[Rfam]
RNA sequence: AUAUAAGGUUGUUAGCCUAUGUCGUCGCAUCUAUGCGACAAACGGCUAACUGACCUGCACCAUGCAGG
Numbered sequence: 001a002u003a004u005a006a007g008g009u010u011g012u013u014a015g016c017c018u019a020u021g022u023c024g025u026c027g028c029a030u031c032u033a034u035g036c037g038a039c040a041a042a043c044g045g046c047u048a049a050c051u052g053a054c055c056u057g058c059a060c061c062a063u064g065c066a067g068g
Base pairs, nucleotide, nucleotide: 011050012049013048014047015046016045017044024039025038026037027036028035054068055067056066057065058064
Shown here is a 68-nucleotide RNA sequence from Solibacillus sp. R5-41, a member of the family "Bacillaceae-1 RNA". The family's RNA type in Rfam is small RNA. The match comes from Rfam's covariance-model search (43 bits).